[Rfam]
Source information: The family of this 106-nucleotide sequence from Chlorocebus sabaeus is "Mitochondrial DNA control region secondary structure A". Lineage of the source: Eukaryota > Deuterostomia > Dipnotetrapodomorpha > Cercopithecinae > Chlorocebus.
RNA sequence: AUUCUAUAGGGGGGUGCAAGCUUUAAAUGCAAUUUAAGUACUAAUUUAUUUUAAUAUGCUUUUAUGUAAAUUGUGCAUUACUGCUAGCCAACAUGUAUAUUAUAUA
Numbered sequence: 001a002u003u004c005u006a007u008a009g010g011g012g013g014g015u016g017c018a019a020g021c022u023u024u025a026a027a028u029g030c031a032a033u034u035u036a037a038g039u040a041c042u043a044a045u046u047u048a049u050u051u052u053a054a055u056a057u058g059c060u061u062u063u064a065u066g067u068a069a070a071u072u073g074u075g076c077a078u079u080a081c082u083g084c085u086a087g088c089c090a091a092c093a094u095g096u097a098u099a100u101u102a103u104a105u106a
Stems, first nucleotide, its partner, number of pairs: 005097004010092001012089002016084003023037006038059002042054001044052001064078005
It scores 78 bits against the family's covariance model. The literature on the family includes a 2008 paper in Mol Biol Evol by Pereira et al., "Evidence for variable selective pressures at a large secondary structure of the human mitochondrial DNA control region". Pairs were carried over by alignment from the consensus structure, which is taken from published work. By type it is an antisense RNA.